[Rfam]
RNA sequence: CGAGCCGGCCAGGCGGUCGCGUCGCCGGGGGAAACCCCGGCGCCGAGGAACGUCCGGGCUCCACAGGGCAGGGUGGUUGCUAACGGCAACCCGGGGUGACCCGCGGGACAGUGCCACAGAAAACAGACCGCCCGACCGCUCCGGCGGCCGGGUAAGGGUGAAACGGUGGUGUAAGAGACCACCAGCGCCCCGGGUGACCGGGGCGGCUCGGUAAACCCCACCCGGAGCAAGGUCGAGAAGGACGGUCUCCGGACCGUCCGCGCAGGCGUUCGAGGGCGGCCCGCCCGAUGCCUGCGGGUAGACCGCUAGAGCCCGUCGGCGACGGCGGGCGUAGAUGGAUGGCCGCCGGCCGGGGCAGUGCCGCAAGGCGCCCCGGCCACAGAACCCGGCGUACCGGCCGACUCGUCCG
Number, nucleotide and partner (000 for none) at each position: 001c405002g404003a403004g402005c000006c400007g399008g398009c397010c396011a000012g347013g346014c345015g344016g343017u342018c341019g000020c045021g044022u000023c042024g041025c040026c039027g038028g037029g000030g000031g000032a000033a000034a000035c000036c000037c028038c027039g026040g025041c024042g023043c000044c021045g020046a000047g000048g000049a000050a392051c391052g390053u000054c389055c388056g387057g386058g385059c227060u226061c225062c224063a000064c000065a000066g282067g281068g280069c279070a000071g223072g222073g221074u220075g219076g090077u089078u088079g087080c086081u000082a000083a000084c000085g000086g080087c079088a078089a077090c076091c105092c103093g102094g101095g100096g000097u000098g000099a000100c095101c094102c093103g092104c000105g091106g218107g217108a000109c000110a000111g216112u215113g212114c211115c210116a000117c000118a000119g000120a000121a000122a000123a000124c000125a000126g000127a000128c157129c156130g153131c152132c151133c150134g149135a000136c147137c146138g145139c000140u000141c000142c000143g000144g000145c138146g137147g136148c000149c134150g133151g132152g131153u130154a000155a000156g129157g128158g000159u000160g000161a000162a000163a000164c000165g183166g182167u181168g180169g179170u178171g000172u000173a000174a000175g000176a000177g000178a170179c169180c168181a167182c166183c165184a000185g207186c205187g204188c203189c202190c201191c200192g199193g198194g000195u000196g000197a000198c193199c192200g191201g190202g189203g188204c187205g186206g000207c185208u000209c000210g115211g114212u113213a000214a000215a112216c111217c107218c106219c075220a074221c073222c072223c071224g062225g061226a060227g059228c000229a000230a000231g304232g303233u302234c301235g000236a000237g000238a000239a000240g000241g295242a000243c000244g292245g291246u290247c000248u000249c000250c000251g000252g000253a000254c000255c000256g000257u000258c000259c000260g000261c000262g000263c000264a000265g000266g000267c000268g000269u000270u000271c000272g000273a000274g286275g285276g284277c283278g000279g069280c068281c067282c066283g277284c276285c275286c274287g000288a000289u000290g246291c245292c244293u000294g000295c241296g000297g000298g000299u000300a000301g234302a233303c232304c231305g000306c000307u000308a000309g000310a000311g330312c329313c328314c327315g326316u325317c324318g323319g000320c000321g000322a000323c318324g317325g316326c315327g314328g313329g312330c311331g000332u000333a000334g000335a000336u000337g000338g000339a000340u000341g018342g017343c016344c015345g014346c013347c012348g000349g000350c000351c000352g000353g000354g000355g000356c000357a000358g000359u000360g000361c000362c000363g000364c000365a000366a000367g000368g000369c000370g000371c000372c000373c000374c000375g000376g000377c000378c000379a000380c000381a000382g000383a000384a000385c058386c057387c056388g055389g054390c052391g051392u050393a000394c000395c000396g010397g009398c008399c007400g006401a000402c004403u003404c002405g001406u000407c000408c000409g000
RNA: Bacterial RNase P class A